A member of the RNA family "Plant signal recognition particle RNA" from Cucurbita maxima, 305 nucleotides long.

[Rfam]
RNA sequence: GCCGAGCUUGGUUACGCAAGCUUGUGACCCAUGUGGGGGCAUUAAUGUGACGGAAUGGGAAGUUUUCCUUGGUUGGCCGGUUCCGCAAUGACCUCGUCUGGAUCGUCCAUUGCAAGCAUGGAGUUGAGCCAUGGUGUGCAGGCGAAGGCCUCAGCCUCAUCGGCUUCUGAAGUGGAGGGCAAUGCGUGAGGCUGGUAUCACAGAACAGCGAAAACCUCCCGCUCUUAGCAGUGCAAGGAUAGCGGCCCGUGUCAUUCGGAUCCAAUUUGGCCCAACCCGGUUGCCUUCACCGAACCAUCAUUUUU
Numbered sequence: 001g002c003c004g005a006g007c008u009u010g011g012u013u014a015c016g017c018a019a020g021c022u023u024g025u026g027a028c029c030c031a032u033g034u035g036g037g038g039g040c041a042u043u044a045a046u047g048u049g050a051c052g053g054a055a056u057g058g059g060a061a062g063u064u065u066u067c068c069u070u071g072g073u074u075g076g077c078c079g080g081u082u083c084c085g086c087a088a089u090g091a092c093c094u095c096g097u098c099u100g101g102a103u104c105g106u107c108c109a110u111u112g113c114a115a116g117c118a119u120g121g122a123g124u125u126g127a128g129c130c131a132u133g134g135u136g137u138g139c140a141g142g143c144g145a146a147g148g149c150c151u152c153a154g155c156c157u158c159a160u161c162g163g164c165u166u167c168u169g170a171a172g173u174g175g176a177g178g179g180c181a182a183u184g185c186g187u188g189a190g191g192c193u194g195g196u197a198u199c200a201c202a203g204a205a206c207a208g209c210g211a212a213a214a215c216c217u218c219c220c221g222c223u224c225u226u227a228g229c230a231g232u233g234c235a236a237g238g239a240u241a242g243c244g245g246c247c248c249g250u251g252u253c254a255u256u257c258g259g260a261u262c263c264a265a266u267u268u269g270g271c272c273c274a275a276c277c278c279g280g281u282u283g284c285c286u287u288c289a290c291c292g293a294a295c296c297a298u299c300a301u302u303u304u305u
Base pairs, nucleotide, nucleotide: 001040002039003038004023005022006021007020008019009018010017028037029036030035044304045303047301048300049299050298052296053295056292057291059288060287061286062284063283066280067279071276073274075272076271077270078269079263080262082260083259084258085257088255089254090253093251099249100248101247103245104244105243106242107238108237110236111235112234113233114232116229117228120225121224122223123222124221126166127165128164129163130162131160132159133158134157136155137154140151141150142149143148167172174219175218176217177216178215183212185210186209187208192203193202194201
It scores 211 bits against the family's covariance model. Lineage of the source: Eukaryota > Viridiplantae > Spermatophyta > Pentapetalae > Cucurbita. Its family is annotated with signal recognition particle, endoplasmic reticulum targeting and SRP-dependent cotranslational protein targeting to membrane, signal sequence recognition in the Gene Ontology.